About this RNA: This 355-nucleotide part of an RNA from Calothrix sp. PCC 7507 belongs to the Rfam family "Bacterial small subunit ribosomal RNA". Pairs were carried over by alignment from the consensus structure, which is taken from published work.
[Rfam]
RNA sequence: GGCGUAAAGCGUCCGCAGGUGGCUAUGUAAGUCUGCUGUUAAAGAGUGAGGCUCAACCUCAUAAAAGCAGUGGAAACUACAAGGCUAGAGUACGUUCGGGGCAGAGGGAAUUCCUGGUGUAGCGGUGAAAUGCGUAGAGAUCAGGAAGAACACCGGUGGCGAAAGCGCUCUGCUAGGCCGUAACUGACACUGAGGGACGAAAGCUAGGGGAGCGAAUGGGAUUAGAUACCCCAGUAGUCCUAGCCGUAAACGAUGGAUACUAGGCGUGGCUUGUAUCGACCCGAGCCGUGCCGUAGCUAACGCGUUAAGUAUCCCGCCUGGGGAGUACGCACGCAAGUGUGAAACUCAAAGGAAU
Numbered sequence: 001g002g003c004g005u006a007a008a009g010c011g012u013c014c015g016c017a018g019g020u021g022g023c024u025a026u027g028u029a030a031g032u033c034u035g036c037u038g039u040u041a042a043a044g045a046g047u048g049a050g051g052c053u054c055a056a057c058c059u060c061a062u063a064a065a066a067g068c069a070g071u072g073g074a075a076a077c078u079a080c081a082a083g084g085c086u087a088g089a090g091u092a093c094g095u096u097c098g099g100g101g102c103a104g105a106g107g108g109a110a111u112u113c114c115u116g117g118u119g120u121a122g123c124g125g126u127g128a129a130a131u132g133c134g135u136a137g138a139g140a141u142c143a144g145g146a147a148g149a150a151c152a153c154c155g156g157u158g159g160c161g162a163a164a165g166c167g168c169u170c171u172g173c174u175a176g177g178c179c180g181u182a183a184c185u186g187a188c189a190c191u192g193a194g195g196g197a198c199g200a201a202a203g204c205u206a207g208g209g210g211a212g213c214g215a216a217u218g219g220g221a222u223u224a225g226a227u228a229c230c231c232c233a234g235u236a237g238u239c240c241u242a243g244c245c246g247u248a249a250a251c252g253a254u255g256g257a258u259a260c261u262a263g264g265c266g267u268g269g270c271u272u273g274u275a276u277c278g279a280c281c282c283g284a285g286c287c288g289u290g291c292c293g294u295a296g297c298u299a300a301c302g303c304g305u306u307a308a309g310u311a312u313c314c315c316g317c318c319u320g321g322g323g324a325g326u327a328c329g330c331a332c333g334c335a336a337g338u339g340u341g342a343a344a345c346u347c348a349a350a351g352g353a354a355u
Base pairs, nucleotide, nucleotide: 001318002317003316009315011198012197013196014195016192018191019190020189022085023084024083026081027080028079030078031077032074033073034072035071036070037069038068039067040066046062047061048060049059050058051057089185090184091183092181093180094179096177097176100174101173102172103171104170105169106168107151111147112146113145114144115143116142117141118140122133123132124131159166160165203244204243205242206241207240208239212238213237217233218232219231220230255314256313257312258311259310260309263292264291265290266289267288268287269286270285271284272283273282296303297302320347321346322345329340330339331338332337